[Rfam]
RNA sequence: CUCACUGUCUGAUAUGUUUGAUAUUCGGUUGUUCUUGAACUCAUGUCAACUAAAUAUCAAACAUAUUUCUACAGAGGC
Numbered sequence: 001c002u003c004a005c006u007g008u009c010u011g012a013u014a015u016g017u018u019u020g021a022u023a024u025u026c027g028g029u030u031g032u033u034c035u036u037g038a039a040c041u042c043a044u045g046u047c048a049a050c051u052a053a054a055u056a057u058c059a060a061a062c063a064u065a066u067u068u069c070u071a072c073a074g075a076g077g078c
Base pairs, nucleotide, nucleotide: 005074006073007072008071011067012066013065014064015063016062017061018060019059020058021057022056023055024054025053027051028050029049030048031047
Dot-bracket structure: ....((((..(((((((((((((((.(((((...............))))).)))))))))))))))...))))....